[Rfam]
Nucleotides: 134
Base pairs, nucleotide, nucleotide: 003060004059005058006057007056008055018044019043020042023038024037026035027034072127073126074125075124076123087113088112089111091109092108094106095105
Number, partner (000 for none) and nucleotide at each position: 001000c002000c003060g004059c005058a006057a007056g008055c009000c010000g011000u012000c013000c014000a015000g016000c017000a018044u019043g020042g021000c022000g023038g024037g025000c026035c027034c028000u029000g030000c031000c032000g033000u034027g035026g036000u037024c038023c039000c040000g041000g042020c043019c044018g045000u046000u047000c048000c049000u050000g051000c052000a053000g054000c055008g056007c057006u058005u059004g060003c061000c062000a063000g064000a065000g066000c067000a068000g069000c070000c071000c072127u073126g074125g075124g076123g077000u078000g079000g080000u081000u082000u083000g084000a085000g086000g087113c088112c089111u090000c091109c092108c093000c094106u095105u096000g097000u098000g099000c100000c101000c102000c103000u104000a105095a106094g107000g108092g109091g110000c111089a112088g113087g114000c115000u116000a117000u118000a119000g120000a121000a122000a123076u124075c125074c126073c127072a128000a129000a130000c131000a132000c133000g134000g
A member of the RNA family "Small nucleolar RNA SNORA9" from Anas platyrhynchos, 134 nucleotides long. Clan: SNORA9 clan. Rfam describes the family as follows. ACA9 is a member of the H/ACA class of snoRNA that guide the sites of modification of uridines to pseudouridines. Gene Ontology terms of the family: RNA processing and nucleolus.